[Rfam]
RNA sequence: CGAAAGACGUUGAAGAGGACGAGUAUGCAUCGCCCAAACGGUACAGAGAGCAGGAGCCGGUGAAAACCUGCCCGUACAGGGAUGCAGAAUGGACCUCGGAGUUGCAAGGCGAACGGCCACCCGGCCCACUAGCCAACGCCGGAGCUGCCACCGUUAUCAAGGCAAAGGAUAUCGCGACUCUUGCCGCCGUAUCCGCAAGAGUGAGGCUGGCUUUGAUCCCCUGGUGCCUACACCAGGGGAUUUUUGUAACCAAAGGCAGUCAGCCUAACUGGGGUGGCACCACGGACCAGCGUUCGUCCCCAGA
Numbered sequence: 001c002g003a004a005a006g007a008c009g010u011u012g013a014a015g016a017g018g019a020c021g022a023g024u025a026u027g028c029a030u031c032g033c034c035c036a037a038a039c040g041g042u043a044c045a046g047a048g049a050g051c052a053g054g055a056g057c058c059g060g061u062g063a064a065a066a067c068c069u070g071c072c073c074g075u076a077c078a079g080g081g082a083u084g085c086a087g088a089a090u091g092g093a094c095c096u097c098g099g100a101g102u103u104g105c106a107a108g109g110c111g112a113a114c115g116g117c118c119a120c121c122c123g124g125c126c127c128a129c130u131a132g133c134c135a136a137c138g139c140c141g142g143a144g145c146u147g148c149c150a151c152c153g154u155u156a157u158c159a160a161g162g163c164a165a166a167g168g169a170u171a172u173c174g175c176g177a178c179u180c181u182u183g184c185c186g187c188c189g190u191a192u193c194c195g196c197a198a199g200a201g202u203g204a205g206g207c208u209g210g211c212u213u214u215g216a217u218c219c220c221c222u223g224g225u226g227c228c229u230a231c232a233c234c235a236g237g238g239g240a241u242u243u244u245u246g247u248a249a250c251c252a253a254a255g256g257c258a259g260u261c262a263g264c265c266u267a268a269c270u271g272g273g274g275u276g277g278c279a280c281c282a283c284g285g286a287c288c289a290g291c292g293u294u295c296g297u298c299c300c301c302a303g304a
Stems, first nucleotide, its partner, number of pairs: 007102002015097004026086006039074003050071005105138001108134003140153003204266009271301004282297005

Description:
Shown here is a 304-nucleotide sequence from Longilinea arvoryzae, a member of the family "T-box leader". Uncharged tRNA acts as the effector for transcription antitermination of genes in the T-box leader family. By type it is a cis-regulatory leader.